[Rfam]
RNA sequence: CUCUCCGAAAACUAUUUAGGUAGUGCCUCAUGUAUCACCGCCGGGGGUAGAGCACUGUUUAGGCUAGGGGGUCAUCGCGACUUACCAACCCUAUGCAAACUCCGAAUACCGGUGAGUGCGAGCAUGGGAGACAGACAUCGGGUGCUAACGUCCGGUGUCAAGAGGGAAACAACCCAGACCGCCAGCUAAGGUCCCCAAGACGUGCUAAGUGGAAAACGAGGUGGGAAGGCUAAAACAGUCAGGAGGUUGGCUUAGAAGCAGCCACCCUUUAAAGAAAGCGUAAUAGCUCACUGAUCGAGUCGUCCUGCGCGGAAGAUGUAACGGGGCUAAGCACGGCACCGAAGCUGCGGAUAUCCGUAAGGAUAUGGUAGGAGAGCGUUCUGUAAGCCUGAGAAGGUGACUGGUAACGGUUGCUGGAGGUAUCAGAAGUGCGAAU
Numbered sequence: 001c002u003c004u005c006c007g008a009a010a011a012c013u014a015u016u017u018a019g020g021u022a023g024u025g026c027c028u029c030a031u032g033u034a035u036c037a038c039c040g041c042c043g044g045g046g047g048u049a050g051a052g053c054a055c056u057g058u059u060u061a062g063g064c065u066a067g068g069g070g071g072u073c074a075u076c077g078c079g080a081c082u083u084a085c086c087a088a089c090c091c092u093a094u095g096c097a098a099a100c101u102c103c104g105a106a107u108a109c110c111g112g113u114g115a116g117u118g119c120g121a122g123c124a125u126g127g128g129a130g131a132c133a134g135a136c137a138u139c140g141g142g143u144g145c146u147a148a149c150g151u152c153c154g155g156u157g158u159c160a161a162g163a164g165g166g167a168a169a170c171a172a173c174c175c176a177g178a179c180c181g182c183c184a185g186c187u188a189a190g191g192u193c194c195c196c197a198a199g200a201c202g203u204g205c206u207a208a209g210u211g212g213a214a215a216a217c218g219a220g221g222u223g224g225g226a227a228g229g230c231u232a233a234a235a236c237a238g239u240c241a242g243g244a245g246g247u248u249g250g251c252u253u254a255g256a257a258g259c260a261g262c263c264a265c266c267c268u269u270u271a272a273a274g275a276a277a278g279c280g281u282a283a284u285a286g287c288u289c290a291c292u293g294a295u296c297g298a299g300u301c302g303u304c305c306u307g308c309g310c311g312g313a314a315g316a317u318g319u320a321a322c323g324g325g326g327c328u329a330a331g332c333a334c335g336g337c338a339c340c341g342a343a344g345c346u347g348c349g350g351a352u353a354u355c356c357g358u359a360a361g362g363a364u365a366u367g368g369u370a371g372g373a374g375a376g377c378g379u380u381c382u383g384u385a386a387g388c389c390u391g392a393g394a395a396g397g398u399g400a401c402u403g404g405u406a407a408c409g410g411u412u413g414c415u416g417g418a419g420g421u422a423u424c425a426g427a428a429g430u431g432c433g434a435a436u
Stems, first nucleotide, its partner, number of pairs: 001376006011024005026130001027128007035121001036118003039114006050103001051101002056097003060093004067086002069083005134159010164175003179350004184346003190340003199337001201335005217311002221308006228301003238295005244268003249263003269273001274289001278287002351366006377431001379428005387421003396415008

Rfam assigns this 436-nucleotide part of an RNA to the family "Bacterial large subunit ribosomal RNA". Rfam links the family to the GO terms ribosome and structural constituent of ribosome. The match comes from Rfam's covariance-model search (2790 bits).